[Rfam]
RNA: MIR5269 microRNA precursor family
Organism: Medicago truncatula
RNA sequence: UUGGUUUAAAUCAUUAUGGAUUUACACGUUAAAAAUUGAACAUACAUAAAGUGGUGGGAUAUACAUUGAUUUUAUCCAA
Dot-bracket structure: ((((.(.((((((.(.((...((((((.(((...............))).))).)))....)).).)))))).).))))